The record is a 109-nucleotide sequence from Weizmannia acidilactici, which matches "SAM riboswitch aptamer (S box leader)" in Rfam. Rfam's curators write: The SAM riboswitch is found upstream of a number of genes which code for proteins involved in methionine or cysteine biosynthesis in Gram-positive bacteria. A search with the family's covariance model found it, with a score of 92 bits.
RNA sequence: UGCUUAUCAAGAGAGGCGGAGGGACUGGCCCGAGGAAACCUCAGCAACAGAUUCUUUUAAAGAAAACUGUGCUAAUUCCAGCAAGCGACCAAAGCUUGGAAGAUAAGUU
Numbered sequence: 001u002g003c004u005u006a007u008c009a010a011g012a013g014a015g016g017c018g019g020a021g022g023g024a025c026u027g028g029c030c031c032g033a034g035g036a037a038a039c040c041u042c043a044g045c046a047a048c049a050g051a052u053u054c055u056u057u058u059a060a061a062g063a064a065a066a067c068u069g070u071g072c073u074a075a076u077u078c079c080a081g082c083a084a085g086c087g088a089c090c091a092a093a094g095c096u097u098g099g100a101a102g103a104u105a106a107g108u109u
Stems, first nucleotide, its partner, number of pairs: 002108007013042004021031003025081004043073004048069002052064003077101001082098005
Description:
NCBI's taxonomy places the organism under Bacteria, Bacillota, Bacilli, Caryophanales, Heyndrickxia. Its family is annotated with regulation of gene expression in the Gene Ontology. Pairs were carried over by alignment from the consensus structure, which is taken from published work.